A member of the RNA family "Acido-Lenti-1 RNA" from Novipirellula maiorica, 46 nucleotides long.
RNA sequence: CCCCGGACUGGCGUCCGGGGCUAUAACAUGGCGUCACUUCGUGACU
Dot-bracket structure: ((((((((....))))))))............(((((...))))).
The family's consensus secondary structure is taken from published work.
NCBI's taxonomy places the organism under Bacteria, Pseudomonadati, Planctomycetota, Planctomycetia, Novipirellula maiorica.